[Rfam]
RNA sequence: GAAGCUCCCAAACUCCCUCAAAGGCUUCCGGCAUCUCAUAAUUGCUUCAAGCAAUCGGAAUGUUGGAAACCUUUUGGGGGGGUUUGAGAGCUU
Numbered sequence: 001g002a003a004g005c006u007c008c009c010a011a012a013c014u015c016c017c018u019c020a021a022a023g024g025c026u027u028c029c030g031g032c033a034u035c036u037c038a039u040a041a042u043u044g045c046u047u048c049a050a051g052c053a054a055u056c057g058g059a060a061u062g063u064u065g066g067a068a069a070c071c072u073u074u075u076g077g078g079g080g081g082g083u084u085u086g087a088g089a090g091c092u093u
Base pairs, nucleotide, nucleotide: 003092004091005090006089009086010085011084012083013082014081015080016079017078018077019076021073022072023071024070026068027067028066029065030064031063032062033061
RNA: MIR477 microRNA precursor family